This 84-nucleotide RNA from Patagioenas fasciata belongs to the Rfam family "Small nucleolar RNA SNORD121A". For this family Rfam cites "snoSeeker: an advanced computational package for screening of guide and orphan snoRNA genes in the human genome" (Yang et al., Nucleic Acids Res, 2006). Its family is annotated with nucleolus and RNA processing in the Gene Ontology. NCBI's taxonomy places the organism under Eukaryota, Deuterostomia, Gnathostomata, Columbimorphae, Patagioenas fasciata. The base pairs follow the family's consensus structure, which was predicted with WAR. The match comes from Rfam's covariance-model search (56 bits). It is annotated as a C/D-box small nucleolar RNA.
[Rfam]
RNA sequence: GUGCAAAAUCCAGUGAUGUGUCUUUUCCAAGCACGUAUCUCAUUGCUUUGUGUGGAAAAUGACUGUUGCUGAGUGAUUUUGGAU
Numbered sequence: 001g002u003g004c005a006a007a008a009u010c011c012a013g014u015g016a017u018g019u020g021u022c023u024u025u026u027c028c029a030a031g032c033a034c035g036u037a038u039c040u041c042a043u044u045g046c047u048u049u050g051u052g053u054g055g056a057a058a059a060u061g062a063c064u065g066u067u068g069c070u071g072a073g074u075g076a077u078u079u080u081g082g083a084u
Base pairs, nucleotide, nucleotide: 001084002083004081005080006079008077009076010075011073